[Rfam]
RNA sequence: CUGCGCUCUCACGCCCUCUUGGUCGCUUCGCUCUCGCUGCUUCUGAGGUACGAGUGAGCGCCGUGGAGGCUGCAGGGAGGCCAGGGGGCCGGGCUGCUCUCCUGGGGCUCGGUCUCACUUCAUGCCUGCGACAUCU
Numbered sequence: 001c002u003g004c005g006c007u008c009u010c011a012c013g014c015c016c017u018c019u020u021g022g023u024c025g026c027u028u029c030g031c032u033c034u035c036g037c038u039g040c041u042u043c044u045g046a047g048g049u050a051c052g053a054g055u056g057a058g059c060g061c062c063g064u065g066g067a068g069g070c071u072g073c074a075g076g077g078a079g080g081c082c083a084g085g086g087g088g089c090c091g092g093g094c095u096g097c098u099c100u101c102c103u104g105g106g107g108c109u110c111g112g113u114c115u116c117a118c119u120u121c122a123u124g125c126c127u128g129c130g131a132c133a134u135c136u
Base pairs, nucleotide, nucleotide: 003061004060005059006058008054009053010052017048018047019046020045021044022043025040026039065136066135067134071130072129073128074127075126076125085116086115087114088113089112090111091110093108094107099104

A member of the RNA family "Small nucleolar RNA SNORA14" from Phyllostomus discolor, 136 nucleotides long. The match comes from Rfam's covariance-model search (85 bits). NCBI's taxonomy places the organism under Eukaryota, Dipnotetrapodomorpha, Tetrapoda, Eutheria, Phyllostomus. ACA14 is a member of the H/ACA class of snoRNA that guide the sites of modification of uridines to pseudouridines.